Shown here is a 104-nucleotide RNA from Limnohabitans sp. T6-5, a member of the family "Group II catalytic intron D1-D4-1". Rfam links the family to the GO term Group II intron splicing. Rfam's curators write: Group II introns are found in rRNA, tRNA and mRNA of organelles in fungi, plants and protists, and also in mRNA in bacteria.
RNA sequence: GCCUUGUUUCUGAAAGGAAGACGGCACUGCCGGAGCGAGAAGUCAGCAGAGGUCGUAGUAGUUGGAGCCGGGGCCGCUGAGGCCACAAGGCAAGAGCGAAGGAC
Numbered sequence: 001g002c003c004u005u006g007u008u009u010c011u012g013a014a015a016g017g018a019a020g021a022c023g024g025c026a027c028u029g030c031c032g033g034a035g036c037g038a039g040a041a042g043u044c045a046g047c048a049g050a051g052g053u054c055g056u057a058g059u060a061g062u063u064g065g066a067g068c069c070g071g072g073g074c075c076g077c078u079g080a081g082g083c084c085a086c087a088a089g090g091c092a093a094g095a096g097c098g099a100a101g102g103a104c
Base pairs, nucleotide, nucleotide: 001025002024004023007020008019009018010017011016043050044049052104053103054102061097062096063095